Rfam assigns this 88-nucleotide RNA from Teichococcus wenyumeiae to the family "Glycine riboswitch aptamer". Rfam's curators write: This family represents the bacterial glycine riboswitch.
RNA sequence: UACUCCUCUGCGGGAGAGAGAGGCUUUUGCCUCCGCCGAAGGCGCAAACUCCCAUAAUCGCUCAGGCACACAGUACUGCGGAGACAUC
Numbered sequence: 001u002a003c004u005c006c007u008c009u010g011c012g013g014g015a016g017a018g019a020g021a022g023g024c025u026u027u028u029g030c031c032u033c034c035g036c037c038g039a040a041g042g043c044g045c046a047a048a049c050u051c052c053c054a055u056a057a058u059c060g061c062u063c064a065g066g067c068a069c070a071c072a073g074u075a076c077u078g079c080g081g082a083g084a085c086a087u088c
Stems, first nucleotide, its partner, number of pairs: 006083008020033004035067003038063002042061003048055001